The record is a 75-nucleotide RNA from Myotis davidii, which matches "mir-492 microRNA precursor family" in Rfam. The source organism's lineage runs through Eukaryota, Metazoa, Mammalia, Chiroptera and Myotis. Its family is annotated with RISC complex and miRNA-mediated post-transcriptional gene silencing in the Gene Ontology.
RNA sequence: ACCAUCGAGGUGCCAUGGCACAAGAUUCUUGGUGCCACCAUUGAGAACUCCAAGAUUGUCCUGUGGGUCAGCAAU
Dot-bracket structure: .........(..((((((.((((...((((((.(.............).)))))))))).))))))..)......